[Rfam]
RNA: Iron response element I
Organism: Lanius ludovicianus
RNA sequence: CGGGAUCCUGCGUCAACAGUGCUUGGACGGAACCG
Number, nucleotide and partner (000 for none) at each position: 001c035002g034003g033004g000005a000006u031007c030008c029009u000010g028011c000012g000013u026014c025015a024016a023017c021018a000019g000020u000021g017022c000023u016024u015025g014026g013027a000028c010029g008030g007031a006032a000033c003034c002035g001